[Rfam]
RNA sequence: AGCUGAUAAAGGCAAACUAUCUCGAAAGAAUAGGACGCAAAGCCAAGGGUCUAAAGCAAGAUUUAUGCCAUGAUCGCCUGGUUACCAAA
Numbered sequence: 001a002g003c004u005g006a007u008a009a010a011g012g013c014a015a016a017c018u019a020u021c022u023c024g025a026a027a028g029a030a031u032a033g034g035a036c037g038c039a040a041a042g043c044c045a046a047g048g049g050u051c052u053a054a055a056g057c058a059a060g061a062u063u064u065a066u067g068c069c070a071u072g073a074u075c076g077c078c079u080g081g082u083u084a085c086c087a088a089a
Stems, first nucleotide, its partner, number of pairs: 012038002017033004022029002041083004046079003049074003056068003

Description
A member of the RNA family "c-di-GMP-I riboswitch aptamer" from Cerasibacillus quisquiliarum, 89 nucleotides long.